[Rfam]
Shown here is a 107-nucleotide sequence from Rhododendron simsii, a member of the family "Small nucleolar RNA snoR100". A search with the family's covariance model found it, with a score of 75 bits. Its family is annotated with nucleolus and RNA processing in the Gene Ontology.
Nucleotides: 107
Stems, first nucleotide, its partner, number of pairs: 012025004043088002050081001052079001054075003
Number, partner (000 for none) and nucleotide at each position: 001000g002000a003000a004000g005000g006000a007000a008000g009000g010000a011000a012025g013024c014023a015022c016000g017000g018000u019000a020000a021000u022015g023014u024013g025012u026000a027000c028000a029000a030000a031000a032000a033000u034000u035000g036000a037000a038000u039000u040000g041000a042000g043088u044087c045000u046000c047000u048000a049000g050081g051000c052079u053000u054075g055074c056073c057000c058000u059000c060000u061000c062000u063000a064000a065000u066000g067000c068000c069000u070000u071000u072000u073056g074055g075054c076000u077000u078000u079052g080000a081050u082000u083000u084000g085000g086000g087044g088043g089000a090000u091000g092000g093000u094000u095000c096000c097000a098000c099000g100000g101000c102000a103000a104000a105000a106000c107000g